[Rfam]
RNA sequence: CAAACUUUCGCGCCGAAUCCCCGCUAGGGGAGCGGGGGACCCAAAUCUCGGGGUGAAUCCGGCGUCCGCGUCCGUUCCGACCCGUGCCGCGGCGGGGGGCGAGGGGCAGCCAAGGCUCCAGGCCUGAGGUUCCACCGCCGCGGUCCGGGCGACUGCACCGGGGCGGGGUGGCGCCGGUAGGGCGACUGCGGCCGUCCGAACCCGUCAGCUAACCCCGUAGGCGUGGCUGCAGGAGGCG
Dot-bracket structure: ..........((((...(((........)))((((((....(.......)(((.....((((((((.......................................................................................................))))))))..((((..........))))...))).........)))))).))))...............
RNA: c-di-AMP riboswitch aptamer (ydaO/yuaA leader)
Organism: Thermaerobacter marianensis